[Rfam]
RNA sequence: CCCAGUGGUAAGUCAGCUGUCCAGUGCUGUGCAGUGCCUGUGCCAGUGUUAGACUGCUGGGAGAUUAAUGGGGCUGCCCUCUCUUCCUGGUUGUUAACUGUUGCUGUUUUGGCAAUGGUUAACACCAGGUUUGGGCAGUGCUGUGCAUCUGUUGAGAGUGGGCCACCACUGGCUUUGGUGGUCCUAGUUUGGUUGCAUACAUU
Numbered sequence: 001c002c003c004a005g006u007g008g009u010a011a012g013u014c015a016g017c018u019g020u021c022c023a024g025u026g027c028u029g030u031g032c033a034g035u036g037c038c039u040g041u042g043c044c045a046g047u048g049u050u051a052g053a054c055u056g057c058u059g060g061g062a063g064a065u066u067a068a069u070g071g072g073g074c075u076g077c078c079c080u081c082u083c084u085u086c087c088u089g090g091u092u093g094u095u096a097a098c099u100g101u102u103g104c105u106g107u108u109u110u111g112g113c114a115a116u117g118g119u120u121a122a123c124a125c126c127a128g129g130u131u132u133g134g135g136c137a138g139u140g141c142u143g144u145g146c147a148u149c150u151g152u153u154g155a156g157a158g159u160g161g162g163c164c165a166c167c168a169c170u171g172g173c174u175u176u177g178g179u180g181g182u183c184c185u186a187g188u189u190u191g192g193u194u195g196c197a198u199a200c201a202u203u
Stems, first nucleotide, its partner, number of pairs: 001061009013051001016047004021042001022040003026037002071141001073139007086129005092124006099117007143198005149192002160184003164180005